This 78-nucleotide sequence from Camphora micrantha belongs to the Rfam family "Small nucleolar RNA R21".
Rfam links the family to the GO terms RNA processing and nucleolus.
The match comes from Rfam's covariance-model search (62 bits).
For this family Rfam cites "Identification of 66 box C/D snoRNAs in Arabidopsis thaliana: extensive gene duplications generated multiple isoforms predicting new ribosomal RNA 2'-O-methylation sites" (Barneche et al., J Mol Biol, 2001).
It is annotated as a C/D-box small nucleolar RNA.
The organism belongs to Camphora, within Eukaryota.
[Rfam]
RNA sequence: CAUCCCUAUGAUGAAUAUCAUAGAUUAUAAAAGUAGUGGGCUGAUCUUUAUUGAUGUGACACAUGAUUCUGAGGGAUG
Numbered sequence: 001c002a003u004c005c006c007u008a009u010g011a012u013g014a015a016u017a018u019c020a021u022a023g024a025u026u027a028u029a030a031a032a033g034u035a036g037u038g039g040g041c042u043g044a045u046c047u048u049u050a051u052u053g054a055u056g057u058g059a060c061a062c063a064u065g066a067u068u069c070u071g072a073g074g075g076a077u078g
Base pairs, nucleotide, nucleotide: 001078002077003076004075005074006073